[Rfam]
About this RNA
The family of this 135-nucleotide RNA sequence from Triplophysa tibetana is "Small nucleolar RNA SNORA5". Rfam links the family to the GO terms RNA processing and nucleolus. From the family's description: ACA5 is a member of the H/ACA class of snoRNA that guide the sites of modification of uridines to pseudouridines. Lineage of the source: Eukaryota > Deuterostomia > Craniata > Teleostei > Triplophysa. Rfam classes the family as an H/ACA-box small nucleolar RNA.

RNA sequence: UGCGGCCUUGUCAAAUUCAGUGUUCACUUGUUAGUAGACUACACUGGCCAGAUGGCUGCAACAUCAAGUUAGUAGUUCUAGGGGCCCAUAUUCUUAGAGUGGAUACUGGGAUCCGAAAACAGCAUACGUACAUUU
Numbered sequence: 001u002g003c004g005g006c007c008u009u010g011u012c013a014a015a016u017u018c019a020g021u022g023u024u025c026a027c028u029u030g031u032u033a034g035u036a037g038a039c040u041a042c043a044c045u046g047g048c049c050a051g052a053u054g055g056c057u058g059c060a061a062c063a064u065c066a067a068g069u070u071a072g073u074a075g076u077u078c079u080a081g082g083g084g085c086c087c088a089u090a091u092u093c094u095u096a097g098a099g100u101g102g103a104u105a106c107u108g109g110g111a112u113c114c115g116a117a118a119a120c121a122g123c124a125u126a127c128g129u130a131c132a133u134u135u
Stems, first nucleotide, its partner, number of pairs: 002059004018046006027037002072127003077122001085110004
Dot-bracket structure: .((((............((((((...((.......))...)))))).........))))............(((..(.......((((..................))))...........)..)))........